[Rfam]
RNA: mir-8834 microRNA precursor family
Organism: Nyctereutes procyonoides
RNA sequence: AGGAGGAACAACCACAGUGGUGGCGGCCAGCUCUAGAGUCCUGGAUUCAGCUCCCGCAGUAGCUAUAGAGCUCUCAGUCUACAGGGGCAUGGAUGCUCCGGGGGCAG
Numbered sequence: 001a002g003g004a005g006g007a008a009c010a011a012c013c014a015c016a017g018u019g020g021u022g023g024c025g026g027c028c029a030g031c032u033c034u035a036g037a038g039u040c041c042u043g044g045a046u047u048c049a050g051c052u053c054c055c056g057c058a059g060u061a062g063c064u065a066u067a068g069a070g071c072u073c074u075c076a077g078u079c080u081a082c083a084g085g086g087g088c089a090u091g092g093a094u095g096c097u098c099c100g101g102g103g104g105c106a107g
Base pairs, nucleotide, nucleotide: 002099003098004097005096007094009091010090012087013086019079020078021077023075025074026073029072030071031070032069033068034067035066037064041059042058043057